[Rfam]
Rfam assigns this 269-nucleotide RNA from Heterocephalus glaber to the family "Mason-Pfizer monkey virus packaging signal". It scores 107 bits against the family's covariance model. The literature on the family includes a 2004 paper in Virus Res by Mustafa et al., "Mutational analysis of the predicted secondary RNA structure of the Mason-Pfizer monkey virus packaging signal". The base pairs follow the family's consensus structure, which was predicted with PFOLD. Lineage of the source: Eukaryota > Opisthokonta > Sarcopterygii > Hystricomorpha > Heterocephalus.
RNA sequence: UGGCGCCCAACGUGGGGGCCCGAGAACGGGGGAUCCAGUGAAGAACGCUGCUCGGGGGCCCAAUAAAAUAGAAAAAAGAGGAUUGCGUUUGACGUGAACCUGCCGUCUUUCCUGCACCUCGGUGAGUUGAGCAGCGAUUAUGGGACAGGGCAUUAGCCAGCAUGAGUUAUUUGUACAAGGUCUUAAAGAAACUUUACAGACACGAGGGGUAAAGGUUACAGUCAAACAGUUGUUAAAAUUUUUUGAUUAUAUUAGAGAUCUCUGCCCUU
Number, nucleotide and partner (000 for none) at each position: 001u000002g000003g000004c000005g000006c032007c031008c030009a000010a000011c000012g027013u026014g000015g000016g000017g000018g000019c000020c000021c000022g000023a000024g000025a000026a013027c012028g000029g000030g008031g007032g006033a000034u000035c000036c050037a049038g048039u047040g000041a000042a000043g000044a000045a000046c000047g039048c038049u037050g036051c000052u000053c000054g000055g000056g000057g000058g000059c000060c000061c000062a000063a000064u000065a000066a000067a000068a000069u000070a000071g000072a000073a000074a000075a000076a000077a000078g120079a119080g118081g117082a000083u000084u000085g000086c000087g111088u000089u000090u000091g107092a106093c105094g104095u000096g000097a000098a000099c000100c000101u000102g000103c000104c094105g093106u092107c091108u000109u000110u000111c087112c000113u000114g000115c000116a000117c081118c080119u079120c078121g000122g000123u000124g000125a000126g000127u148128u147129g146130a000131g000132c144133a000134g000135c142136g141137a000138u000139u000140a000141u136142g135143g000144g132145a000146c129147a128148g127149g000150g000151c000152a000153u196154u000155a194156g192157c000158c000159a000160g000161c000162a000163u000164g000165a000166g000167u000168u000169a000170u000171u000172u000173g000174u000175a000176c000177a000178a000179g000180g000181u000182c000183u000184u000185a000186a000187a000188g000189a000190a000191a000192c156193u000194u155195u000196a153197c000198a000199g000200a000201c000202a000203c245204g244205a243206g242207g241208g240209g239210u238211a000212a000213a231214g230215g000216u228217u000218a000219c000220a000221g000222u000223c000224a000225a000226a000227c000228a216229g000230u214231u213232g000233u000234u000235a000236a000237a000238a210239u209240u208241u207242u206243u205244u204245g203246a000247u000248u000249a000250u000251a000252u000253u000254a269255g268256a000257g266258a000259u264260c000261u000262c000263u000264g259265c000266c257267c000268u255269u254